small nucleolar RNA snoR135: a 144-nucleotide sequence from Carpinus fangiana. The source organism's lineage runs through Eukaryota, eudicotyledons, rosids, Fagales and Carpinus. The match comes from Rfam's covariance-model search (48 bits). The base pairs follow the family's consensus structure, which was predicted with RNAalifold. The family's RNA type in Rfam is H/ACA-box small nucleolar RNA.

RNA sequence: UGAGCAGAGAUUUUGUCUAUGAGUGUUGUACUACAAUCAUUGCAUUCUGUUGCUGAAAGAUUACUCUGAGAAUUUGACUUGGUGUAGAUGAGCAGUUGGCUUUCAUCUCAAUGGUUGAAAUCAGCACUGAUAUUCCCCGGCUAA
Numbered sequence: 001u002g003a004g005c006a007g008a009g010a011u012u013u014u015g016u017c018u019a020u021g022a023g024u025g026u027u028g029u030a031c032u033a034c035a036a037u038c039a040u041u042g043c044a045u046u047c048u049g050u051u052g053c054u055g056a057a058a059g060a061u062u063a064c065u066c067u068g069a070g071a072a073u074u075u076g077a078c079u080u081g082g083u084g085u086a087g088a089u090g091a092g093c094a095g096u097u098g099g100c101u102u103u104c105a106u107c108u109c110a111a112u113g114g115u116u117g118a119a120a121u122c123a124g125c126a127c128u129g130a131u132a133u134u135c136c137c138c139g140g141c142u143a144a
Base pairs, nucleotide, nucleotide: 005068006067007066008065009064015045016044018042019041081138082137084135086133088131089130091128095125096124097123098122